This 78-nucleotide sequence from Schistosoma bovis belongs to the Rfam family "mir-3492 microRNA precursor family". Its family is annotated with RISC complex and miRNA-mediated post-transcriptional gene silencing in the Gene Ontology. The source organism's lineage runs through Eukaryota, Eumetazoa, Neodermata, Schistosomatoidea and Schistosoma. Rfam 15.1 lists 21,496 matches to the family in 13 species. It scores 68 bits against the family's covariance model. The base pairs follow the family's consensus structure, which was predicted with RNAalifold.
[Rfam]
RNA sequence: ACCCUUCUGUAUCCGUGCUGCGAUUUCGUCGCACACCAGACCACAAGAGCUGAUGAGAACCCCAAGAUAAGUGAAGCG
Numbered sequence: 001a002c003c004c005u006u007c008u009g010u011a012u013c014c015g016u017g018c019u020g021c022g023a024u025u026u027c028g029u030c031g032c033a034c035a036c037c038a039g040a041c042c043a044c045a046a047g048a049g050c051u052g053a054u055g056a057g058a059a060c061c062c063c064a065a066g067a068u069a070a071g072u073g074a075a076g077c078g
Stems, first nucleotide, its partner, number of pairs: 003076001005074002008071001010069004016064002020062001022060001024058007